[Rfam]
RNA sequence: ACUAUCCUUGCUCAUUCAGGAACUAGCUGAAUGGUCACCAGAAUUGUUUGCGAAAUUACCUGAAUUUUCUUACCAUCACAAGCACUUCGAUUACUUGUGGUAAUUGCAUGUUCAGACAUUU
Numbered sequence: 001a002c003u004a005u006c007c008u009u010g011c012u013c014a015u016u017c018a019g020g021a022a023c024u025a026g027c028u029g030a031a032u033g034g035u036c037a038c039c040a041g042a043a044u045u046g047u048u049u050g051c052g053a054a055a056u057u058a059c060c061u062g063a064a065u066u067u068u069c070u071u072a073c074c075a076u077c078a079c080a081a082g083c084a085c086u087u088c089g090a091u092u093a094c095u096u097g098u099g100g101u102a103a104u105u106g107c108a109u110g111u112u113c114a115g116a117c118a119u120u121u
Stems, first nucleotide, its partner, number of pairs: 008053004013033007035042002060115006075101008
RNA: Tetrahymena snoRNA TtnuHACA19